RNA: SAH (S-adenosyl-L-homocysteine) riboswitch aptamer
Organism: Candidatus Accumulibacter adjunctus
RNA sequence: CAGUCCGAGGAGCGCUGCAAGGCUGUCCUCCCACAGUUUCAGGCUCGGAUUCAUCAAACGGCGCUCAUCCCAC
Numbered sequence: 001c002a003g004u005c006c007g008a009g010g011a012g013c014g015c016u017g018c019a020a021g022g023c024u025g026u027c028c029u030c031c032c033a034c035a036g037u038u039u040c041a042g043g044c045u046c047g048g049a050u051u052c053a054u055c056a057a058a059c060g061g062c063g064c065u066c067a068u069c070c071c072a073c
Stems, first nucleotide, its partner, number of pairs: 002051007021038006